[Rfam]
RNA sequence: CAUUUGUGAGAACCAUUUGAAUCAAAUAAUGGAAAUGGAAUGAUUCAAAUGGUUCUUGACGGUU
Numbered sequence: 001c002a003u004u005u006g007u008g009a010g011a012a013c014c015a016u017u018u019g020a021a022u023c024a025a026a027u028a029a030u031g032g033a034a035a036u037g038g039a040a041u042g043a044u045u046c047a048a049a050u051g052g053u054u055c056u057u058g059a060c061g062g063u064u
Stems, first nucleotide, its partner, number of pairs: 007058018
Notes:
A member of the RNA family "Plastid-ccsA-ndhD-2 3UTR RNA" from Pentactina rupicola, 64 nucleotides long. Rfam describes the family as follows. Plastid ccsA-ndhD-2 is a non-coding RNA (ncRNA) recognised in plastids. On this family, see Zandueta-Criado and Bock, Nucleic Acids Res 2004: "Surprising features of plastid ndhD transcripts: addition of non-encoded nucleotides and polysome association of mRNAs with an unedited start codon". The base pairs follow the family's consensus structure, which was predicted with LocARNA. It is annotated as a cis-regulatory element.